[Rfam]
RNA sequence: UGUAAAAGUGAUGAGUUGCACACUCAUAAAGUCAUAGCAUUGGGGGAUGCAGGUAGUGUUUAGUACUUUCCUGAGAAAAGAAAUGCACAGGGGCCACUCACUCAUC
Numbered sequence: 001u002g003u004a005a006a007a008g009u010g011a012u013g014a015g016u017u018g019c020a021c022a023c024u025c026a027u028a029a030a031g032u033c034a035u036a037g038c039a040u041u042g043g044g045g046g047a048u049g050c051a052g053g054u055a056g057u058g059u060u061u062a063g064u065a066c067u068u069u070c071c072u073g074a075g076a077a078a079a080g081a082a083a084u085g086c087a088c089a090g091g092g093g094c095c096a097c098u099c100a101c102u103c104a105u106c
Stems, first nucleotide, its partner, number of pairs: 004105001007102002022064003026059003031054003037050005
This 106-nucleotide RNA sequence from Cebus imitator belongs to the Rfam family "Small nucleolar RNA SNORD67".
Lineage of the source: Eukaryota > Deuterostomia > Gnathostomata > Eutheria > Cebus.
The family's RNA type in Rfam is C/D-box small nucleolar RNA.
Rfam links the family to the GO terms nucleolus and RNA processing.